A member of the RNA family "glmS glucosamine-6-phosphate activated ribozyme aptamer" from Desulfitobacterium hafniense, 175 nucleotides long. The match comes from Rfam's covariance-model search (98 bits). NCBI's taxonomy places the organism under Bacteria, Bacillati, Clostridia, Desulfitobacterium, Desulfitobacterium hafniense.

RNA sequence: CAAGUUUAUACAGCGCCUGGACCGUAAUCGAGUUACGAACUCGAAUAUCGAUUAGGGUUGACGAGGAGGAGAGUUAUCGAAAGACUCGGCGGAUGCUCUCCCGGUGUCUUGACACCGUAAGCUUAUUACAAAACCGUGAAGUAAUUUGCGGGACAAAAGGUAAGCCUCAAGGAAC
Number, nucleotide and partner (000 for none) at each position: 001c000002a000003a000004g000005u000006u000007u000008a000009u000010a000011c000012a000013g000014c000015g000016c000017c000018u000019g000020g059021a058022c057023c056024g000025u054026a053027a052028u000029c050030g049031a048032g000033u000034u000035a000036c000037g000038a000039a000040c000041u000042c000043g000044a000045a000046u000047a000048u031049c030050g029051a000052u027053u026054a025055g000056g023057g022058u021059u020060g000061a000062c000063g000064a000065g000066g000067a000068g101069g100070a099071g098072a097073g000074u000075u000076a000077u089078c088079g087080a086081a000082a000083g000084a000085c000086u080087c079088g078089g077090c000091g000092g000093a000094u000095g000096c000097u072098c071099u070100c069101c068102c117103g116104g115105u114106g113107u000108c000109u000110u000111g000112a000113c106114a105115c104116c103117g102118u000119a000120a000121g165122c164123u163124u162125a161126u160127u000128a000129c000130a000131a000132a000133a000134c151135c150136g149137u148138g147139a146140a145141g000142u000143a000144a000145u140146u139147u138148g137149c136150g135151g134152g000153a000154c000155a000156a000157a000158a000159g000160g126161u125162a124163a123164g122165c121166c000167u000168c000169a000170a000171g000172g000173a000174a000175c000